[Rfam]
RNA sequence: CGACAUCGGUUCCUCUUCCUGCCUGCAGCAAAUCAGGAUGAUUUUACGAUGUCGCAGAGAAAUUCGGGUCUUUUUCACCCAGGAGGCUUCAGGCUGCAGCCGACCAUAAUCACGGCUUCCUGGUUUUGCGGGACCCAACAAAA
Numbered sequence: 001c002g003a004c005a006u007c008g009g010u011u012c013c014u015c016u017u018c019c020u021g022c023c024u025g026c027a028g029c030a031a032a033u034c035a036g037g038a039u040g041a042u043u044u045u046a047c048g049a050u051g052u053c054g055c056a057g058a059g060a061a062a063u064u065c066g067g068g069u070c071u072u073u074u075u076c077a078c079c080c081a082g083g084a085g086g087c088u089u090c091a092g093g094c095u096g097c098a099g100c101c102g103a104c105c106a107u108a109a110u111c112a113c114g115g116c117u118u119c120c121u122g123g124u125u126u127u128g129c130g131g132g133a134c135c136c137a138a139c140a141a142a143a
Base pairs, nucleotide, nucleotide: 001054002053003052004051005050006049007048008047014041015040017038018037020035021034067135068134069133070132071131072130079123080122081121082120083119084118085117086116087115088114
Notes:
The record is a 143-nucleotide RNA sequence from Mastacembelus armatus, which matches "Small nucleolar RNA SNORA79" in Rfam. Gene Ontology terms of the family: RNA processing and nucleolus. The organism belongs to Mastacembelus, within Eukaryota. The family has 25 seed sequences and 944 matches in Rfam 15.1. On this family, see Schattner et al., RNA 2006: "A computational screen for mammalian pseudouridylation guide H/ACA RNAs". Pairs were carried over by alignment from the consensus structure, which was predicted with RNAalifold. The match comes from Rfam's covariance-model search (68 bits).